The family of this 84-nucleotide RNA sequence from Diachasma alloeum is "wcaG RNA".
The family's consensus secondary structure is taken from published work.
The family's RNA type in Rfam is cis-regulatory element.

RNA sequence: UUAGUUUUUCGACUUAGAAGAGUUGAUUUUGUGGAUUCCUCCGGUUUGGUAAUUCCGGUUAAAAAUUAUCUGGCGCCCAUGGAU
Numbered sequence: 001u002u003a004g005u006u007u008u009u010c011g012a013c014u015u016a017g018a019a020g021a022g023u024u025g026a027u028u029u030u031g032u033g034g035a036u037u038c039c040u041c042c043g044g045u046u047u048g049g050u051a052a053u054u055c056c057g058g059u060u061a062a063a064a065a066u067u068a069u070c071u072g073g074c075g076c077c078c079a080u081g082g083a084u
Base pairs, nucleotide, nucleotide: 009026010025011024012023013022014021015020041058042057043056044055048070049069050068051067052066053065